[Rfam]
RNA sequence: UUUGAUGAUGAUUACACUCCAUGCUAAUCAUGAAUGUAUUCAACUAUAUUUUGAAUACAAUGAUUAAAAUUGUUGUUUACGCUUUCUGAAA
Numbered sequence: 001u002u003u004g005a006u007g008a009u010g011a012u013u014a015c016a017c018u019c020c021a022u023g024c025u026a027a028u029c030a031u032g033a034a035u036g037u038a039u040u041c042a043a044c045u046a047u048a049u050u051u052u053g054a055a056u057a058c059a060a061u062g063a064u065u066a067a068a069a070u071u072g073u074u075g076u077u078u079a080c081g082c083u084u085u086c087u088g089a090a091a
Stems, first nucleotide, its partner, number of pairs: 001091002035059009
Background: The family of this 91-nucleotide RNA from Saccharomyces arboricola is "Small nucleolar RNA snR53". The family's consensus secondary structure was predicted with PFOLD. For this family Rfam cites "A computational screen for methylation guide snoRNAs in yeast" (Lowe and Eddy, Science, 1999). Rfam links the family to the GO terms nucleolus and RNA processing. Taxonomically the source falls in Saccharomyces arboricola (Eukaryota, saccharomyceta, Saccharomycetales, Saccharomycetaceae).